[Rfam]
RNA sequence: UGGGUGCGAGAGCGUCAGAU
Number, nucleotide and partner (000 for none) at each position: 001u000002g000003g016004g015005u014006g013007c012008g000009a000010g000011a000012g007013c006014g005015u004016c003017a000018g000019a000020u000

Rfam assigns this 20-nucleotide RNA from Tetracentron sinense to the family "HIV-1 stem-loop 4 packaging signal".
By type it is a cis-regulatory element.
Lineage of the source: Eukaryota > Streptophyta > Tracheophyta > Spermatophyta > Tetracentron.
On this family, see Yu et al., Proc Natl Acad Sci U S A 2008: "MS3D structural elucidation of the HIV-1 packaging signal".
The family has 16 seed sequences and 49 matches in Rfam 15.1.